[Rfam]
A member of the RNA family "mir-17 microRNA precursor family" from Anabarilius grahami, 81 nucleotides long. This family represents the microRNA (miRNA) precursor mir-17, family, which includes mir-20, mir-91, and mir-103. miRNAs are transcribed as ~70nt precursors (modelled here) and subsequently processed by the Dicer enzyme to give a ~22nt product. In this case the mature sequence comes from the 3' arm of the precursor. The match comes from Rfam's covariance-model search (74 bits). The base pairs follow the family's consensus structure, which was predicted with RNAalifold. NCBI's taxonomy places the organism under Eukaryota, Vertebrata, Teleostomi, Cyprinoidei, Anabarilius. A reference for the family is Ambros (2001), "microRNAs: tiny regulators with great potential", Cell. Gene Ontology terms of the family: miRNA-mediated post-transcriptional gene silencing and RISC complex.
RNA sequence: CCAGCAGUAUUAAAGUGCUUAUAGUGCAGGUAGUUCUGGAACUCUCAUCUACUGCAGUGUGAGCACUUCAAGUACUUCUAG
Numbered sequence: 001c002c003a004g005c006a007g008u009a010u011u012a013a014a015g016u017g018c019u020u021a022u023a024g025u026g027c028a029g030g031u032a033g034u035u036c037u038g039g040a041a042c043u044c045u046c047a048u049c050u051a052c053u054g055c056a057g058u059g060u061g062a063g064c065a066c067u068u069c070a071a072g073u074a075c076u077u078c079u080a081g
Stems, first nucleotide, its partner, number of pairs: 004078001006076002009073003013068011025056003029053005